[Rfam]
RNA sequence: AAAUGAAGGAAGCACGGUAAUAUGCACAUAAAUUGAUUUGGGUCUCUAGGCUUGCCAUCUCUGAUGCCUUUCGGCUUUGAUUUGGGGGCAUGGUUUCGCAGCAAAACG
Dot-bracket structure: ...........(((........)))..............(.(((.....(.(.(((................)))...).).....))).).................
RNA: Small nucleolar RNA snoR100